[Rfam]
RNA sequence: AGGUAUCCCAAAGGGGUGACCUGAGAACACAAAGUACAUUAGUUAUGCUAACACCAUUAAUUUAGCAAUCAAUGCCUCUUGUGUUCUCAGCAUCACUCCUUUGGGGUGACC
Numbered sequence: 001a002g003g004u005a006u007c008c009c010a011a012a013g014g015g016g017u018g019a020c021c022u023g024a025g026a027a028c029a030c031a032a033a034g035u036a037c038a039u040u041a042g043u044u045a046u047g048c049u050a051a052c053a054c055c056a057u058u059a060a061u062u063u064a065g066c067a068a069u070c071a072a073u074g075c076c077u078c079u080u081g082u083g084u085u086c087u088c089a090g091c092a093u094c095a096c097u098c099c100u101u102u103g104g105g106g107u108g109a110c111c
Stems, first nucleotide, its partner, number of pairs: 007105002011101004016096004023088010
This 111-nucleotide sequence from Prunus armeniaca belongs to the Rfam family "MIR398 microRNA precursor family". The match comes from Rfam's covariance-model search (65 bits). The literature on the family includes a 2004 paper in Mol Cell by Jones-Rhoades and Bartel, "Computational identification of plant microRNAs and their targets, including a stress-induced miRNA". Pairs were carried over by alignment from the consensus structure, which was predicted with WAR. Rfam links the family to the GO terms RISC complex and miRNA-mediated post-transcriptional gene silencing. Rfam 15.1 lists 627 matches to the family in 211 species. NCBI's taxonomy places the organism under Eukaryota, Streptophyta, Spermatophyta, Amygdaleae, Prunus.